[Rfam]
RNA sequence: GCUGUAUAGGCAGUGUCGUUAGAUGAUUGUUCUCACACAUCAAUCACUAACCGCACUACCAGUACAGU
Numbered sequence: 001g002c003u004g005u006a007u008a009g010g011c012a013g014u015g016u017c018g019u020u021a022g023a024u025g026a027u028u029g030u031u032c033u034c035a036c037a038c039a040u041c042a043a044u045c046a047c048u049a050a051c052c053g054c055a056c057u058a059c060c061a062g063u064a065c066a067g068u
Stems, first nucleotide, its partner, number of pairs: 002067005009060002012057005018051005024046006031039001
RNA: mir-34 microRNA precursor family